[Rfam]
RNA sequence: AAUAAAUAGUCCGGGAGCUUGUGUGCAGGCUGAGAGGAAACAAUAGUUUCGACCGUACCUGAUUUGGAUAAUGCCAACGUAGGGAAUCACAUUCAUGAAUGU
Number, nucleotide and partner (000 for none) at each position: 001a000002a000003u000004a000005a000006a000007u089008a000009g087010u086011c000012c055013g054014g053015g000016a000017g030018c029019u028020u027021g026022u000023g000024u000025g000026c021027a020028g019029g018030c017031u000032g000033a000034g000035a000036g000037g050038a049039a048040a047041c046042a000043a000044u000045a000046g041047u040048u039049u038050c037051g000052a000053c014054c013055g012056u000057a000058c083059c082060u081061g080062a000063u000064u077065u076066g075067g074068a000069u000070a000071a000072u000073g000074c067075c066076a065077a064078c000079g000080u061081a060082g059083g058084g000085a000086a010087u009088c000089a007090c000091a000092u000093u000094c000095a000096u000097g000098a000099a000100u000101g000102u000
RNA: TPP riboswitch aptamer (THI element)
Organism: Mobilitalea sibirica